A member of the RNA family "Bacterial RNase P class A" from Clostridium magnum, 338 nucleotides long. By type it is a ribozyme. It scores 284 bits against the family's covariance model.

RNA sequence: CGAGUAAGCCAGACAAUCGCUGCUGUGGAAACACAGGAGAGGAAAGUCCGAGCUCCAUAGGGCAGGGUGCUGGGUAAUACCCAGUCAGGGUAACCUGAAGGAAAGUGCAACAGAGAUAUACCGCCGGCUAGUUUCGGUAAGGGUGGAAAGGCGAGGUAAGAGCUCACCAGCGCAUUGGCGACUUUGCGGCUAUGUAAACCCCACCUGGAGCAAGAUUGGGAAGUAUCAAGGGGCGGCCCGUUCCACUUCCCGUUAGUGUCGCUUGAGCCUACUGGUAACAGUAGGCCUAGAUAGAUGAUUGUCAAAUACAAAACUCGGCUUAUAGACUUAGUCGCAUG
Numbered sequence: 001c002g003a004g005u006a007a008g009c010c011a012g013a014c015a016a017u018c019g020c021u022g023c024u025g026u027g028g029a030a031a032c033a034c035a036g037g038a039g040a041g042g043a044a045a046g047u048c049c050g051a052g053c054u055c056c057a058u059a060g061g062g063c064a065g066g067g068u069g070c071u072g073g074g075u076a077a078u079a080c081c082c083a084g085u086c087a088g089g090g091u092a093a094c095c096u097g098a099a100g101g102a103a104a105g106u107g108c109a110a111c112a113g114a115g116a117u118a119u120a121c122c123g124c125c126g127g128c129u130a131g132u133u134u135c136g137g138u139a140a141g142g143g144u145g146g147a148a149a150g151g152c153g154a155g156g157u158a159a160g161a162g163c164u165c166a167c168c169a170g171c172g173c174a175u176u177g178g179c180g181a182c183u184u185u186g187c188g189g190c191u192a193u194g195u196a197a198a199c200c201c202c203a204c205c206u207g208g209a210g211c212a213a214g215a216u217u218g219g220g221a222a223g224u225a226u227c228a229a230g231g232g233g234c235g236g237c238c239c240g241u242u243c244c245a246c247u248u249c250c251c252g253u254u255a256g257u258g259u260c261g262c263u264u265g266a267g268c269c270u271a272c273u274g275g276u277a278a279c280a281g282u283a284g285g286c287c288u289a290g291a292u293a294g295a296u297g298a299u300u301g302u303c304a305a306a307u308a309c310a311a312a313a314c315u316c317g318g319c320u321u322a323u324a325g326a327c328u329u330a331g332u333c334g335c336a337u338g
Stems, first nucleotide, its partner, number of pairs: 001334003005330004010325001011323001012303007020039002023036005044321003048318005053210004060239004065206005070084005085099001086097004100201002105199002107195003121142002123138005150168002153165003170190001171188004177182001214260003219250006230244005267286008